[Rfam]
RNA sequence: AUCACCUUUAAUAACAGUCCAGAGAGGCUGAGAAGGUACAUGUGAAAGUGACUCAUAAAUAGGUCUGCGGACUUUUUGCUGAGCUCACACUAUUUUUACGCAUAUACAUUACAACCUCUUGGGCAUCUUAUAGCUCAAGAGGUUUUUUAUU
Numbered sequence: 001a002u003c004a005c006c007u008u009u010a011a012u013a014a015c016a017g018u019c020c021a022g023a024g025a026g027g028c029u030g031a032g033a034a035g036g037u038a039c040a041u042g043u044g045a046a047a048g049u050g051a052c053u054c055a056u057a058a059a060u061a062g063g064u065c066u067g068c069g070g071a072c073u074u075u076u077u078g079c080u081g082a083g084c085u086c087a088c089a090c091u092a093u094u095u096u097u098a099c100g101c102a103u104a105u106a107c108a109u110u111a112c113a114a115c116c117u118c119u120u121g122g123g124c125a126u127c128u129u130a131u132a133g134c135u136c137a138a139g140a141g142g143u144u145u146u147u148u149a150u151u
Base pairs, nucleotide, nucleotide: 004037005036006035007034008033009032015030016029017028018027019026052083053082054081055080058077059076061074062073063072064071065070111146113144114143115142116141117140118139119138120137121136122135123134124133
RNA: PyrR binding site